[Rfam]
RNA sequence: AUAAAUUGAUAGGUUUAGGGUCUGAAAAACUCAAAUAGUAUUGUGUUGACAUCAGCUUCUUUCUCUUGCUUUUUUAACGAGAUUGGAGUUAAAUGACAGCACUAAAUUC
Numbered sequence: 001a002u003a004a005a006u007u008g009a010u011a012g013g014u015u016u017a018g019g020g021u022c023u024g025a026a027a028a029a030c031u032c033a034a035a036u037a038g039u040a041u042u043g044u045g046u047u048g049a050c051a052u053c054a055g056c057u058u059c060u061u062u063c064u065c066u067u068g069c070u071u072u073u074u075u076a077a078c079g080a081g082a083u084u085g086g087a088g089u090u091a092a093a094u095g096a097c098a099g100c101a102c103u104a105a106a107u108u109c
Stems, first nucleotide, its partner, number of pairs: 043102006054090006062082004
RNA: Small nucleolar RNA snoR97
Organism: Corchorus capsularis